[Rfam]
RNA: U7 small nuclear RNA
Organism: Microcebus murinus
RNA sequence: CAGCACUGCAGCUCUUGUAGAAUUUGUCUAGCAGGUUUUCUGGUCCUCCCUGGAAGGUCUCC
Numbered sequence: 001c002a003g004c005a006c007u008g009c010a011g012c013u014c015u016u017g018u019a020g021a022a023u024u025u026g027u028c029u030a031g032c033a034g035g036u037u038u039u040c041u042g043g044u045c046c047u048c049c050c051u052g053g054a055a056g057g058u059c060u061c062c
Base pairs, nucleotide, nucleotide: 034059035058036057037056038055039054040053041052042051043050